[Rfam]
RNA sequence: AACUCAUCAAGACCAGCUGAGGGAUAGGCCCGUUGACGCUGGGGCAACCGCCGAAAAGCCUGACCGGCUUUUAGGAAAGGUGCCAAUUCCUGCGGGAAGGUUUCUUUCUUCCCGAGAGAUGAGUC
Numbered sequence: 001a002a003c004u005c006a007u008c009a010a011g012a013c014c015a016g017c018u019g020a021g022g023g024a025u026a027g028g029c030c031c032g033u034u035g036a037c038g039c040u041g042g043g044g045c046a047a048c049c050g051c052c053g054a055a056a057a058g059c060c061u062g063a064c065c066g067g068c069u070u071u072u073a074g075g076a077a078a079g080g081u082g083c084c085a086a087u088u089c090c091u092g093c094g095g096g097a098a099g100g101u102u103u104c105u106u107u108c109u110u111c112c113c114g115a116g117a118g119a120u121g122a123g124u125c
Stems, first nucleotide, its partner, number of pairs: 002124007013042005021031003025092004043084004048080002051075002088117001093114008
Dot-bracket structure: .(((((((....(((((...(((.[[[[)))......)))))((((.((.((.....................))...))))))...(]]]]((((((((......))))))))..)))))))).
Record summary
A member of the RNA family "SAM riboswitch aptamer (S box leader)" from Hyphococcus luteus, 125 nucleotides long. Its family is annotated with regulation of gene expression in the Gene Ontology. The match comes from Rfam's covariance-model search (86 bits).